This 114-nucleotide sequence from Branchiostoma floridae belongs to the Rfam family "Potassium channel RNA editing signal". By type it is a cis-regulatory element. The organism belongs to Branchiostoma, within Eukaryota. Rfam 15.1 lists 14,095 matches to the family in 1,000 species. Its family is annotated with adenosine to inosine editing in the Gene Ontology. From the family's description: This family represents a group of sequences related to the human potassium channel Kv1.1 hairpin element which directs the efficient modification of an adenosine to inosine by an adenosine deaminase acting on RNA (ADAR). The ADAR modification causes an isoleucine/valine recoding event which lies in the ion-conducting pore of the potassium channel. It is thought that this editing event targets the process of fast inactivation and allows a more rapid recovery from inactivation at negative potentials.
[Rfam]
RNA sequence: GUGGGAUACGGAGACAUGUACCCCGUGACAGUAGGGGGAAAAAUUGUCGGUUCGCUGUGUGCCAUCGCUGGUGUGCUAACCAUCGCGUUACCAGUGCCUGUCAUCGUUUCAAAC
Dot-bracket structure: ((..(..((((.((((.((((...............((.(........(((.........)))..........).))................)))).)))).))))..)..))